A member of the RNA family "Histone 3' UTR stem-loop" from Nasonia vitripennis, 46 nucleotides long. The family has 50 seed sequences and 44,596 matches in Rfam 15.1.
[Rfam]
RNA sequence: AAAUCGGCCCUUUUCAGGGCCACCAAAAAUAUUAAACGUAGAAUAU
Numbered sequence: 001a002a003a004u005c006g007g008c009c010c011u012u013u014u015c016a017g018g019g020c021c022a023c024c025a026a027a028a029a030u031a032u033u034a035a036a037c038g039u040a041g042a043a044u045a046u
Base pairs, nucleotide, nucleotide: 006021007020008019009018010017011016
The family's RNA type in Rfam is cis-regulatory element.
Rfam links the family to the GO term mRNA 3'-end processing by stem-loop binding and cleavage.
Rfam describes the family as follows. The mRNAs of metazoan histone genes lack a poly-A tail. 3' end processing occurs at a site between a highly conserved stem-loop (modelled by this family) and a purine rich region around 20 nts downstream (the histone downstream element, or HDE). The stem-loop is bound by a 31 kDa stem-loop binding protein (SLBP - also termed the histone hairpin binding protein, or HBP). Together with U7 snRNA binding of the HDE, SLBP binding nucleate s the formation of the processing complex. The histone 3' UTR stem-loop is also involved in nucleocytoplasmic transport of the mRNA, and in stability regulation and translation efficiency in the cytoplasm.